[Rfam]
RNA sequence: GGAUAACACGUUUUGCUAUCCCCAGCCAAUAACGCAAUGAUAGGUAGGAUAACUUUUCCACAUAUCAUUGUGUUAUUGGUUAGAGAUAGCAAAACAGUACUAUCC
Numbered sequence: 001g002g003a004u005a006a007c008a009c010g011u012u013u014u015g016c017u018a019u020c021c022c023c024a025g026c027c028a029a030u031a032a033c034g035c036a037a038u039g040a041u042a043g044g045u046a047g048g049a050u051a052a053c054u055u056u057u058c059c060a061c062a063u064a065u066c067a068u069u070g071u072g073u074u075a076u077u078g079g080u081u082a083g084a085g086a087u088a089g090c091a092a093a094a095c096a097g098u099a100c101u102a103u104c105c
Stems, first nucleotide, its partner, number of pairs: 002104004011094009022083001024081019044061002047058003
Overview: The family of this 105-nucleotide sequence from Prunus armeniaca is "MIR6274 microRNA precursor family". Gene Ontology terms of the family: miRNA-mediated post-transcriptional gene silencing and RISC complex. It scores 82 bits against the family's covariance model.